[Rfam]
RNA sequence: GCGGGCACACGCGGACGCCCGACCAGACGGUUUGCCGUCCAAGCUCCGC
Numbered sequence: 001g002c003g004g005g006c007a008c009a010c011g012c013g014g015a016c017g018c019c020c021g022a023c024c025a026g027a028c029g030g031u032u033u034g035c036c037g038u039c040c041a042a043g044c045u046c047c048g049c
Stems, first nucleotide, its partner, number of pairs: 002021005011049005026039005